[Rfam]
Nucleotides: 081
Stems, first nucleotide, its partner, number of pairs: 002026001004023008039048002049081003058074006
Number, partner (000 for none) and nucleotide at each position: 001000c002026u003000g004023g005022a006021c007020g008019g009018c010017u011016g012000g013000a014000a015000a016011c017010g018009g019008c020007c021006g022005u023004u024000g025000a026002a027000c028000c029000g030000u031000u032000u033000g034000g035000a036000g037000a038000a039048g040047u041000c042000a043000g044000c045000a046000a047040a048039c049081g050080g051079c052000a053000u054000a055000g056000u057000a058074g059073g060072u061071g062070g063069c064000u065000g066000g067000c068000c069063g070062c071061u072060g073059c074058c075000g076000a077000a078000g079051g080050c081049c
Shown here is an 81-nucleotide sequence from Methylomonas methanica, a member of the family "Group II catalytic intron D1-D4-1".
Rfam describes the family as follows. Group II introns are found in rRNA, tRNA and mRNA of organelles in fungi, plants and protists, and also in mRNA in bacteria.